The family of this 89-nucleotide RNA from Escherichia coli is "sraA". It is one of the family's seed sequences. Pairs were carried over by alignment from the consensus structure, which was predicted with RNAalifold. The source organism's lineage runs through Bacteria, Pseudomonadati, Enterobacterales, Enterobacteriaceae and Escherichia coli O157:H7. The literature on the family includes a 2001 paper in Curr Biol by Argaman et al., "Novel small RNA-encoding genes in the intergenic regions of Escherichia coli".
RNA sequence: AUGUACGUCAGUAUAUGGGGAUGUUUCCCCACAUUCAACGCCGAGAAUAGAGGAAAAUUAAAGGGAGAUAAAUCCCCUUUUCGUUAACU
Numbered sequence: 001a002u003g004u005a006c007g008u009c010a011g012u013a014u015a016u017g018g019g020g021a022u023g024u025u026u027c028c029c030c031a032c033a034u035u036c037a038a039c040g041c042c043g044a045g046a047a048u049a050g051a052g053g054a055a056a057a058u059u060a061a062a063g064g065g066a067g068a069u070a071a072a073u074c075c076c077c078u079u080u081u082c083g084u085u086a087a088c089u
Base pairs, nucleotide, nucleotide: 008037010035011034012033016031017030018029019028020027060080061079062078063077064076065075067074068073